Rfam assigns this 176-nucleotide sequence from Clostridium sp. CAG:169 to the family "Lysine riboswitch aptamer". The organism belongs to Clostridium, within Bacteria.
[Rfam]
RNA sequence: GCAGACGAUAGAGGCGCACCUUUCAUCAGUAGCGCGGGCUAGGCUGCCAAAGCCGCUGGAUGCCUGUGCCAAAGGGAACGGUGCCGAAGGGAAUAUCUCGGCGGGUAUUGCCCUGGGGGUGUCCUUAACAGGGACACAACUGUCACCGCAGCUUGCGGUGAAGCGCUAUCCAUCCU
Numbered sequence: 001g002c003a004g005a006c007g008a009u010a011g012a013g014g015c016g017c018a019c020c021u022u023u024c025a026u027c028a029g030u031a032g033c034g035c036g037g038g039c040u041a042g043g044c045u046g047c048c049a050a051a052g053c054c055g056c057u058g059g060a061u062g063c064c065u066g067u068g069c070c071a072a073a074g075g076g077a078a079c080g081g082u083g084c085c086g087a088a089g090g091g092a093a094u095a096u097c098u099c100g101g102c103g104g105g106u107a108u109u110g111c112c113c114u115g116g117g118g119g120u121g122u123c124c125u126u127a128a129c130a131g132g133g134a135c136a137c138a139a140c141u142g143u144c145a146c147c148g149c150a151g152c153u154u155g156c157g158g159u160g161a162a163g164c165g166c167u168a169u170c171c172a173u174c175c176u
Stems, first nucleotide, its partner, number of pairs: 007170005016084005022078003032069008088114004092109007115141002119137007143161007